[Rfam]
Nucleotides: 080
Base pairs, nucleotide, nucleotide: 001080002079003078004077005076006075008073009072010071011070012069013068014067015066016065018063023058026054027053028052029051030050031049032048
Number, partner (000 for none) and nucleotide at each position: 001080u002079u003078g004077g005076a006075u007000u008073a009072a010071a011070u012069c013068a014067a015066u016065g017000c018063g019000g020000g021000u022000c023058u024000c025000c026054u027053a028052c029051u030050u031049u032048g033000a034000a035000a036000a037000u038000g039000g040000a041000u042000u043000c044000c045000a046000c047000a048032u049031a050030a051029a052028g053027u054026g055000g056000u057000a058023a059000g060000a061000c062000c063018u064000a065016c066015a067014u068013u069012g070011a071010u072009u073008u074000c075006a076005u077004c078003c079002a080001a